[Rfam]
RNA sequence: GCCGGGCUUGACGCAUGCCGCCCGGAAGCGACCUCGGUUUUGGGACAACGGCAUGCAUGAAAACAAGGACUUGAAGCGCAUCGCAUGAAUCCGUUUCAACGCGAAGCGCUCCAUGUCUUUGUUUUCACGCAAUUCCGGACGGAAAACCGCUUCACACUCUUCCUCGAAUUGCUUUUGUUUUCACGC
Numbered sequence: 001g002c003c004g005g006g007c008u009u010g011a012c013g014c015a016u017g018c019c020g021c022c023c024g025g026a027a028g029c030g031a032c033c034u035c036g037g038u039u040u041u042g043g044g045a046c047a048a049c050g051g052c053a054u055g056c057a058u059g060a061a062a063a064c065a066a067g068g069a070c071u072u073g074a075a076g077c078g079c080a081u082c083g084c085a086u087g088a089a090u091c092c093g094u095u096u097c098a099a100c101g102c103g104a105a106g107c108g109c110u111c112c113a114u115g116u117c118u119u120u121g122u123u124u125u126c127a128c129g130c131a132a133u134u135c136c137g138g139a140c141g142g143a144a145a146a147c148c149g150c151u152u153c154a155c156a157c158u159c160u161u162c163c164u165c166g167a168a169u170u171g172c173u174u175u176u177g178u179u180u181u182c183a184c185g186c
Stems, first nucleotide, its partner, number of pairs: 013056008022044002025041005030035001059182007067118004072113002075110005081104004086098003129172007

A member of the RNA family "Brucella sRNA CI27" from Mesorhizobium sp. Root172, 186 nucleotides long. Rfam classes the family as a small RNA. A reference for the family is Dong et al. (2014), "Identification of novel sRNAs in Brucella abortus 2308", FEMS Microbiol Lett. NCBI's taxonomy places the organism under Bacteria, Pseudomonadati, Alphaproteobacteria, Hyphomicrobiales, Mesorhizobium.